[Rfam]
RNA: ffh sRNA
Organism: Afifella marina
RNA sequence: GAUUCCGGAGGUCACCAUCCGCCAGCGAAGGUUCGCCCGCGGAUGCAAUUUGC
Numbered sequence: 001g002a003u004u005c006c007g008g009a010g011g012u013c014a015c016c017a018u019c020c021g022c023c024a025g026c027g028a029a030g031g032u033u034c035g036c037c038c039g040c041g042g043a044u045g046c047a048a049u050u051u052g053c
Stems, first nucleotide, its partner, number of pairs: 016045007025036004